Rfam assigns this 340-nucleotide RNA from Candidatus Syntrophocurvum alkaliphilum to the family "Bacterial RNase P class A". About the family: Ribonuclease P (RNase P) is a ubiquitous endoribonuclease, found in archaea, bacteria and eukarya as well as chloroplasts and mitochondria. Its best characterised activity is the generation of mature 5'-ends of tRNAs by cleaving the 5'-leader elements of precursor-tRNAs. Cellular RNase Ps are ribonucleoproteins. RNA from bacterial RNase Ps retains its catalytic activity in the absence of the protein subunit, i.e. it is a ribozyme. Taxonomically the source falls in Candidatus Syntrophocurvum (Bacteria, Bacillati, Clostridia, Syntrophomonadaceae).
[Rfam]
RNA sequence: UAAGUAAAUCAGAUAGUCGCGGGUAUUAAAUACCUGAGGAAAGUCGGAGCUCCAUAGGGCAAGGUGCUGGAUAACAUCCAGUGGGGGCGACCCUAAGGAAAGUGCCACAGAAAUAAACCGCCUCACUUACGUGAGGUAAGGAUGGAACGGUGAGGUAAGAGCUCACCAGCAACUAGGUGACUAGUUGGCUAGGUAAACCCCACCUGGAGCAAGACCAAAUAGAGGAACUAUGAAGUAGCCCGCUUCGUUCCCGGGUAAGGUCGCUAGAGGUAUCAGGCAACUGAUAUCCAAGAUAGAUGACUAUCUAAUACAGAACUCCGCUUAUAGAUUUACUUACUAU
Numbered sequence: 001u002a003a004g005u006a007a008a009u010c011a012g013a014u015a016g017u018c019g020c021g022g023g024u025a026u027u028a029a030a031u032a033c034c035u036g037a038g039g040a041a042a043g044u045c046g047g048a049g050c051u052c053c054a055u056a057g058g059g060c061a062a063g064g065u066g067c068u069g070g071a072u073a074a075c076a077u078c079c080a081g082u083g084g085g086g087g088c089g090a091c092c093c094u095a096a097g098g099a100a101a102g103u104g105c106c107a108c109a110g111a112a113a114u115a116a117a118c119c120g121c122c123u124c125a126c127u128u129a130c131g132u133g134a135g136g137u138a139a140g141g142a143u144g145g146a147a148c149g150g151u152g153a154g155g156u157a158a159g160a161g162c163u164c165a166c167c168a169g170c171a172a173c174u175a176g177g178u179g180a181c182u183a184g185u186u187g188g189c190u191a192g193g194u195a196a197a198c199c200c201c202a203c204c205u206g207g208a209g210c211a212a213g214a215c216c217a218a219a220u221a222g223a224g225g226a227a228c229u230a231u232g233a234a235g236u237a238g239c240c241c242g243c244u245u246c247g248u249u250c251c252c253g254g255g256u257a258a259g260g261u262c263g264c265u266a267g268a269g270g271u272a273u274c275a276g277g278c279a280a281c282u283g284a285u286a287u288c289c290a291a292g293a294u295a296g297a298u299g300a301c302u303a304u305c306u307a308a309u310a311c312a313g314a315a316c317u318c319c320g321c322u323u324a325u326a327g328a329u330u331u332a333c334u335u336a337c338u339a340u
Stems, first nucleotide, its partner, number of pairs: 001336010011325001012305007020036007041323003045320005050209004057241004062205005067081005082096001083094004097200002102198002104194003118141002120137007149167006169189001170187007213262004224251005232246005269288008